[Rfam]
RNA sequence: GUCAGCUUGCCCUGGCCUGUGGGUCAUCCACGGUAAGAGUGCCCAUAGGGCACCGCCCACAGGGAAAGCUACAGGGCAAGCAAGGAGGA
Numbered sequence: 001g002u003c004a005g006c007u008u009g010c011c012c013u014g015g016c017c018u019g020u021g022g023g024u025c026a027u028c029c030a031c032g033g034u035a036a037g038a039g040u041g042c043c044c045a046u047a048g049g050g051c052a053c054c055g056c057c058c059a060c061a062g063g064g065a066a067a068g069c070u071a072c073a074g075g076g077c078a079a080g081c082a083a084g085g086a087g088g089a
Base pairs, nucleotide, nucleotide: 005081006080007079008078009077010076011075012074016063017062018061019060020059021058022057023056024055037054039053040052041051042050043049064072